[Rfam]
RNA sequence: AUGUAUAAAUGUAUACACACUUCCUAUAUAUAUCCAUAUAUAUAGUGUAUAUAUUAUACAU
Numbered sequence: 001a002u003g004u005a006u007a008a009a010u011g012u013a014u015a016c017a018c019a020c021u022u023c024c025u026a027u028a029u030a031u032a033u034c035c036a037u038a039u040a041u042a043u044a045g046u047g048u049a050u051a052u053a054u055u056a057u058a059c060a061u
Stems, first nucleotide, its partner, number of pairs: 001061008010053009025042007
The record is a 61-nucleotide RNA sequence from Equus caballus, which matches "mir-568 microRNA precursor family" in Rfam.
NCBI's taxonomy places the organism under Eukaryota, Metazoa, Teleostomi, Mammalia, Equus.
Pairs were carried over by alignment from the consensus structure, which was predicted with RNAalifold.
The sequence is in the family's curated seed alignment.